This 84-nucleotide RNA from Romboutsia maritimum belongs to the Rfam family "c-di-GMP-I riboswitch aptamer". The source organism's lineage runs through Bacteria, Bacillota, Clostridia, Peptostreptococcaceae and Romboutsia. Rfam links the family to the GO term cyclic-di-GMP binding.
[Rfam]
RNA sequence: AGGUUUAAAGGGCAAAUUUAGAGAAAUCUAAAGACGCAAAGCUAUAGGGGCUAAGGUUUGAGACUAUGCCUGCCAGUUGCCAAA
Numbered sequence: 001a002g003g004u005u006u007a008a009a010g011g012g013c014a015a016a017u018u019u020a021g022a023g024a025a026a027u028c029u030a031a032a033g034a035c036g037c038a039a040a041g042c043u044a045u046a047g048g049g050g051c052u053a054a055g056g057u058u059u060g061a062g063a064c065u066a067u068g069c070c071u072g073c074c075a076g077u078u079g080c081c082a083a084a
Base pairs, nucleotide, nucleotide: 012037013036017032018031019030020029021028022027040078041077042076043075047074048073049070050069051068056064057063058062